A member of the RNA family "ODC internal ribosome entry site (IRES)" from Sousa chinensis, 150 nucleotides long. On this family, see Pyronnet et al., Cell Mol Life Sci 2005: "Alternative splicing facilitates internal ribosome entry on the ornithine decarboxylase mRNA".
[Rfam]
RNA sequence: ACUUCCACUGCUGUACUGAGGGCACAAGCAUUUUCGGUGGGACUUGAAAUUCCUGGAGAACUGCUUUUGGUAAAAAGCUGGCAACAAUUUCUUUAAUAUCCAUGUCUUAAUUUUUUGUUUUGUUGUGUUUCAGAAAGACAUCAAGAAACU
Numbered sequence: 001a002c003u004u005c006c007a008c009u010g011c012u013g014u015a016c017u018g019a020g021g022g023c024a025c026a027a028g029c030a031u032u033u034u035c036g037g038u039g040g041g042a043c044u045u046g047a048a049a050u051u052c053c054u055g056g057a058g059a060a061c062u063g064c065u066u067u068u069g070g071u072a073a074a075a076a077g078c079u080g081g082c083a084a085c086a087a088u089u090u091c092u093u094u095a096a097u098a099u100c101c102a103u104g105u106c107u108u109a110a111u112u113u114u115u116u117g118u119u120u121u122g123u124u125g126u127g128u129u130u131c132a133g134a135a136a137g138a139c140a141u142c143a144a145g146a147a148a149c150u
Stems, first nucleotide, its partner, number of pairs: 006081001010078003014074001017069008039054004088148006099137001